A member of the RNA family "Metazoan signal recognition particle RNA" from Monoraphidium neglectum, 275 nucleotides long. The source organism's lineage runs through Eukaryota, core chlorophytes, Chlorophyceae, Selenastraceae and Monoraphidium. The signal recognition particle (SRP) is a universally conserved ribonucleoprotein. It is involved in the co-translational targeting of proteins to membranes. The eukaryotic SRP consists of a 300-nucleotide 7S RNA and six proteins: SRPs 72, 68, 54, 19, 14, and 9. Archaeal SRP consists of a 7S RNA and homologues of the eukaryotic SRP19 and SRP54 proteins. A reference for the family is Wild et al. (2002), "Towards the structure of the mammalian signal recognition particle", Curr Opin Struct Biol.

RNA sequence: GCUGGCAGGGGUUGCGUCCUGCUGUCACCCGAGUGGGAGCAACGUGCGGAAGGGGUCUCUUGGGCGAUUUGUGCCCCUUUGACGUGCCCAAGCGCCUGUCCCAUGGAGCCACCAGCCAUUCAUGCAAUUUCCCUGACGGGAGGUUGCGUGGGUGAUAGUGCGGGGAGCAAUGAGUGAGGGAGGAAACUCAGCGGCUCACUCUCCCUCUGGAUGCGCGGCCAUGGGAGCACGGGUGCGAGCGUCAAAGGGGGUCAAACACGGCCGCCUGAACGAUU
Numbered sequence: 001g002c003u004g005g006c007a008g009g010g011g012u013u014g015c016g017u018c019c020u021g022c023u024g025u026c027a028c029c030c031g032a033g034u035g036g037g038a039g040c041a042a043c044g045u046g047c048g049g050a051a052g053g054g055g056u057c058u059c060u061u062g063g064g065c066g067a068u069u070u071g072u073g074c075c076c077c078u079u080u081g082a083c084g085u086g087c088c089c090a091a092g093c094g095c096c097u098g099u100c101c102c103a104u105g106g107a108g109c110c111a112c113c114a115g116c117c118a119u120u121c122a123u124g125c126a127a128u129u130u131c132c133c134u135g136a137c138g139g140g141a142g143g144u145u146g147c148g149u150g151g152g153u154g155a156u157a158g159u160g161c162g163g164g165g166a167g168c169a170a171u172g173a174g175u176g177a178g179g180g181a182g183g184a185a186a187c188u189c190a191g192c193g194g195c196u197c198a199c200u201c202u203c204c205c206u207c208u209g210g211a212u213g214c215g216c217g218g219c220c221a222u223g224g225g226a227g228c229a230c231g232g233g234u235g236c237g238a239g240c241g242u243c244a245a246a247g248g249g250g251g252u253c254a255a256a257c258a259c260g261g262c263c264g265c266c267u268g269a270a271c272g273a274u275u
Stems, first nucleotide, its partner, number of pairs: 001040003004023007028037003054275004060268001062266002068256004074250012087237001092236008100225007108216002112210004117154017162205004167200001171198005180189003